[Rfam]
RNA sequence: AUGUGUGUAGGAGGAACUGAUCUACUUCAGUGGAAACAAGGAAACACUUGAUUUAAAUCAGUUUUAAA
Numbered sequence: 001a002u003g004u005g006u007g008u009a010g011g012a013g014g015a016a017c018u019g020a021u022c023u024a025c026u027u028c029a030g031u032g033g034a035a036a037c038a039a040g041g042a043a044a045c046a047c048u049u050g051a052u053u054u055a056a057a058u059c060a061g062u063u064u065u066a067a068a
Base pairs, nucleotide, nucleotide: 014064015063016062017061018060019059023055027051028050029049030047031046032045
RNA: Cyano-1 RNA